[Rfam]
RNA: MIR2587 microRNA precursor family
RNA sequence: GUGUCAUGGUCAUUGCUAACCGUCCAUAAUAUCCCUGGAAUUGAUUUGCAGCUUAUGCGGGGAUUCUAUGACGGUUAGUAGAGACUUUUGGCAU
Numbered sequence: 001g002u003g004u005c006a007u008g009g010u011c012a013u014u015g016c017u018a019a020c021c022g023u024c025c026a027u028a029a030u031a032u033c034c035c036u037g038g039a040a041u042u043g044a045u046u047u048g049c050a051g052c053u054u055a056u057g058c059g060g061g062g063a064u065u066c067u068a069u070g071a072c073g074g075u076u077a078g079u080a081g082a083g084a085c086u087u088u089u090g091g092c093a094u
Stems, first nucleotide, its partner, number of pairs: 001094006008086004013081012026069003031064007039056001043052001